[Rfam]
A member of the RNA family "Repression of heat shock gene expression (ROSE) element" from Beijerinckiaceae bacterium RH AL1, 93 nucleotides long. The match comes from Rfam's covariance-model search (52 bits). The family has 13 seed sequences and 381 matches in Rfam 15.1. From the family's description: This family represents a 5' UTR cis-regulatory element found in heat shock mRNAs and is known as the ROSE (repression of heat shock gene expression) element. The ROSE element is a negative regulator of heat shock gene expression. The secondary structure is thought to be regulated by temperature. It is annotated as an RNA thermoregulator. Pairs were carried over by alignment from the consensus structure, which is taken from published work.
RNA sequence: GUCGAGGCCAAAAUGGCUCGACCGCAAGGGGGCUUACCCGUUGUGGACGGUCCCCAUCACCAUGUUGCUCAAGGGAGAAUAUGGCUAUGAGAA
Numbered sequence: 001g002u003c004g005a006g007g008c009c010a011a012a013a014u015g016g017c018u019c020g021a022c023c024g025c026a027a028g029g030g031g032g033c034u035u036a037c038c039c040g041u042u043g044u045g046g047a048c049g050g051u052c053c054c055c056a057u058c059a060c061c062a063u064g065u066u067g068c069u070c071a072a073g074g075g076a077g078a079a080u081a082u083g084g085c086u087a088u089g090a091g092a093a
Base pairs, nucleotide, nucleotide: 001022002021003020004019005018006017008016009015029054030053031052032051033050034049037046038045055089056088057087060084061083062082063081064080065079066078068077069076070075